The record is a 180-nucleotide sequence from Psychrobacillus psychrotolerans, which matches "Lysine riboswitch aptamer" in Rfam. Taxonomically the source falls in Psychrobacillus (Bacteria, Bacillota, Caryophanales, Bacillaceae). The match comes from Rfam's covariance-model search (117 bits).
[Rfam]
RNA sequence: AGUAAGGAUAGAGGCGCAAAAACCAUUAGUACACAAUUAGAGGAUAAUGAGAUCCUAGGACAUUUGUGGAAAGGGGAAUUUGCCGAAGUUGAAAGAAUCUCAUUUUUCUUGAAGCUGGUUCAGCUGUUGAACAAACACUGAAUUGUCAUAUAGGAGACUAUAUGGAGGGCUAUCUUACGC
Numbered sequence: 001a002g003u004a005a006g007g008a009u010a011g012a013g014g015c016g017c018a019a020a021a022a023c024c025a026u027u028a029g030u031a032c033a034c035a036a037u038u039a040g041a042g043g044a045u046a047a048u049g050a051g052a053u054c055c056u057a058g059g060a061c062a063u064u065u066g067u068g069g070a071a072a073g074g075g076g077a078a079u080u081u082g083c084c085g086a087a088g089u090u091g092a093a094a095g096a097a098u099c100u101c102a103u104u105u106u107u108c109u110u111g112a113a114g115c116u117g118g119u120u121c122a123g124c125u126g127u128u129g130a131a132c133a134a135a136c137a138c139u140g141a142a143u144u145g146u147c148a149u150a151u152a153g154g155a156g157a158c159u160a161u162a163u164g165g166a167g168g169g170c171u172a173u174c175u176u177a178c179g180c
Stems, first nucleotide, its partner, number of pairs: 006175006016083005023076002032068005038062001087116004093110005117144007125137004146165007